The record is a 117-nucleotide sequence from Peptoniphilus sp. oral taxon 386, which matches "FMN riboswitch aptamer (RFN element)" in Rfam.

[Rfam]
RNA sequence: AAAUAUCUUCAGGGCGAGGUGAAAAUCCUUGACCGGUGGUAAAGCCCACGAGUCUUUAUGGACUGAACUUGUGAAAUUCAAGUGCCGACAGUAUAGUCUGGAUGAAAGAAGGUUGCG
Numbered sequence: 001a002a003a004u005a006u007c008u009u010c011a012g013g014g015c016g017a018g019g020u021g022a023a024a025a026u027c028c029u030u031g032a033c034c035g036g037u038g039g040u041a042a043a044g045c046c047c048a049c050g051a052g053u054c055u056u057u058a059u060g061g062a063c064u065g066a067a068c069u070u071g072u073g074a075a076a077u078u079c080a081a082g083u084g085c086c087g088a089c090a091g092u093a094u095a096g097u098c099u100g101g102a103u104g105a106a107a108g109a110a111g112g113u114u115g116c117g
Stems, first nucleotide, its partner, number of pairs: 005113006017029003032097002034087002036049004044085002052063003067083005089100003
The source organism's lineage runs through Bacteria, Bacillati, Tissierellales, Peptoniphilaceae and Peptoniphilus sp. oral taxon 386.